[Rfam]
RNA sequence: CCCAGCCCUGAAGGACUGGGCUAUUGUCUUUCGUCCCUGCCGGGACU
Numbered sequence: 001c002c003c004a005g006c007c008c009u010g011a012a013g014g015a016c017u018g019g020g021c022u023a024u025u026g027u028c029u030u031u032c033g034u035c036c037c038u039g040c041c042g043g044g045a046c047u
Base pairs, nucleotide, nucleotide: 001020002019003018004017005016007014008013033046034045035044036043037042

Notes:
The record is a 47-nucleotide sequence from Pirellula sp. SH-Sr6A, which matches "Acido-Lenti-1 RNA" in Rfam. NCBI's taxonomy places the organism under Bacteria, Pseudomonadati, Planctomycetia, Pirellulales, Pirellula. The match comes from Rfam's covariance-model search (40 bits).